Description
Rfam assigns this 67-nucleotide RNA sequence from Bacillaceae bacterium SAS-127 to the family "RAGATH-18 RNA".

RNA sequence: CUUGUGGAGUACUACACCAACCAGAGUAGCUGGCAGUUUAGCAAAAUGGGGUACGAAGAAGCAGGAA
Numbered sequence: 001c002u003u004g005u006g007g008a009g010u011a012c013u014a015c016a017c018c019a020a021c022c023a024g025a026g027u028a029g030c031u032g033g034c035a036g037u038u039u040a041g042c043a044a045a046a047u048g049g050g051g052u053a054c055g056a057a058g059a060a061g062c063a064g065g066a067a
Stems, first nucleotide, its partner, number of pairs: 001065005009054005021049003029042003
The source organism's lineage runs through Bacteria, Bacillota, Bacilli, Caryophanales and Bacillaceae. Actinobacteria, Firmicutes, Fusobacteria, Thermotogae (1 example).